RNA sequence: UCCAUCGUGAGGUGGAAUCUGAAAGAAGCUGUCGACAAACACUUGGUUUGACGAACAGAAACUUUAUAUAAGGCAUAAGAUUGUGGAUAAGACUGCUACACAAGUUAAGGUCCCAUAGCUAUUCGGAACAGUGCCGAAAGCGGAGCAUAUCCACCCACUCAAAGCGGUUCUAUU
Numbered sequence: 001u002c003c004a005u006c007g008u009g010a011g012g013u014g015g016a017a018u019c020u021g022a023a024a025g026a027a028g029c030u031g032u033c034g035a036c037a038a039a040c041a042c043u044u045g046g047u048u049u050g051a052c053g054a055a056c057a058g059a060a061a062c063u064u065u066a067u068a069u070a071a072g073g074c075a076u077a078a079g080a081u082u083g084u085g086g087a088u089a090a091g092a093c094u095g096c097u098a099c100a101c102a103a104g105u106u107a108a109g110g111u112c113c114c115a116u117a118g119c120u121a122u123u124c125g126g127a128a129c130a131g132u133g134c135c136g137a138a139a140g141c142g143g144a145g146c147a148u149a150u151c152c153a154c155c156c157a158c159u160c161a162a163a164g165c166g167g168u169u170c171u172a173u174u
Stems, first nucleotide, its partner, number of pairs: 001016006028174001030172002036166001041159001043157001045155001046150002049147002062145004067140001074136001080132005085113004091106004

Rfam assigns this 174-nucleotide RNA sequence from Bacteroides sp. CAG:714 to the family "Group II catalytic intron D1-D4-3". About the family: Group II introns are found in rRNA, tRNA and mRNA of organelles in fungi, plants and protists, and also in mRNA in bacteria.